This 159-nucleotide sequence from Firmicutes bacterium AF22-6AC belongs to the Rfam family "Clostridiales-1 RNA". The family's consensus secondary structure is taken from published work. NCBI's taxonomy places the organism under Bacteria, Bacillati, Bacillota.
RNA sequence: AAUAAUAAGAUUUGCAAUCGUCUGUAACGCAUGACUGCUUGCAGGCAAUGCGCAAAGACGAUUAGCAAAUCGAACAGACAUGAGCAAGAAGGACGAUAGUCCGGAUUGCGAAUGGAUGUACACUUUCGAGAGUGCGGAGCACGGAGAAAGUGUAUUAUU
Numbered sequence: 001a002a003u004a005a006u007a008a009g010a011u012u013u014g015c016a017a018u019c020g021u022c023u024g025u026a027a028c029g030c031a032u033g034a035c036u037g038c039u040u041g042c043a044g045g046c047a048a049u050g051c052g053c054a055a056a057g058a059c060g061a062u063u064a065g066c067a068a069a070u071c072g073a074a075c076a077g078a079c080a081u082g083a084g085c086a087a088g089a090a091g092g093a094c095g096a097u098a099g100u101c102c103g104g105a106u107u108g109c110g111a112a113u114g115g116a117u118g119u120a121c122a123c124u125u126u127c128g129a130g131a132g133u134g135c136g137g138a139g140c141a142c143g144g145a146g147a148a149a150g151u152g153u154a155u156u157a158u159u
Stems, first nucleotide, its partner, number of pairs: 001159007010070004017062007025054001028052005033046001035044003074119003079114003084109004091102004121152007132142004